[Rfam]
RNA sequence: AAGUGUUAACAGCUCCUUUAGAAUUUCUCUAGAAGAUUUUCCAGUUUUCAUGGGAAAAAA
Numbered sequence: 001a002a003g004u005g006u007u008a009a010c011a012g013c014u015c016c017u018u019u020a021g022a023a024u025u026u027c028u029c030u031a032g033a034a035g036a037u038u039u040u041c042c043a044g045u046u047u048u049c050a051u052g053g054g055a056a057a058a059a060a
Stems, first nucleotide, its partner, number of pairs: 037060001038057005044051002
About this RNA
The record is a 60-nucleotide sequence from Prolemur simus, which matches "U7 small nuclear RNA" in Rfam. Pairs were carried over by alignment from the consensus structure, which was predicted with PFOLD. Taxonomically the source falls in Prolemur (Eukaryota, Euteleostomi, Amniota, Euarchontoglires). From the family's description: Animal histone pre-mRNAs are spliced by a different mechanism than nuclear pre-mRNAs and self-splicing introns.